[Rfam]
RNA: EGFOA RNA
RNA sequence: GACUGCCCAGAUGUGCGAAAGCGACCGUCCUAGUCCACGAAAGUGGAGGAUAAUGCCCUGAAAGGUGAAAGUCCUUGCUCUGUAAAGCUAGACCUGGGGGAGUUAGAGGGGUAGC
Numbered sequence: 001g002a003c004u005g006c007c008c009a010g011a012u013g014u015g016c017g018a019a020a021g022c023g024a025c026c027g028u029c030c031u032a033g034u035c036c037a038c039g040a041a042a043g044u045g046g047a048g049g050a051u052a053a054u055g056c057c058c059u060g061a062a063a064g065g066u067g068a069a070a071g072u073c074c075u076u077g078c079u080c081u082g083u084a085a086a087g088c089u090a091g092a093c094c095u096g097g098g099g100g101a102g103u104u105a106g107a108g109g110g111g112u113a114g115c
Stems, first nucleotide, its partner, number of pairs: 006098005027093002030091004034047005054113006062076004077103005